[Rfam]
RNA: c-di-GMP-I-GGC riboswitch aptamer
Organism: Roseisolibacter agri
RNA sequence: CGCGACAAAGGCAAACCCGUCGAAAGGCGGGGACGCAAAGCCAACGGGGCUACCGUCGACUCCACCAGGGUGAGUCGCCACGCCGGCCGGGCCGCCGAAC
Numbered sequence: 001c002g003c004g005a006c007a008a009a010g011g012c013a014a015a016c017c018c019g020u021c022g023a024a025a026g027g028c029g030g031g032g033a034c035g036c037a038a039a040g041c042c043a044a045c046g047g048g049g050c051u052a053c054c055g056u057c058g059a060c061u062c063c064a065c066c067a068g069g070g071u072g073a074g075u076c077g078c079c080a081c082g083c084c085g086g087c088c089g090g091g092c093c094g095c096c097g098a099a100c
Base pairs, nucleotide, nucleotide: 003097004096011036012035016031017030018029019028020027021026034086040092041091042090045089046088047087048084049083050082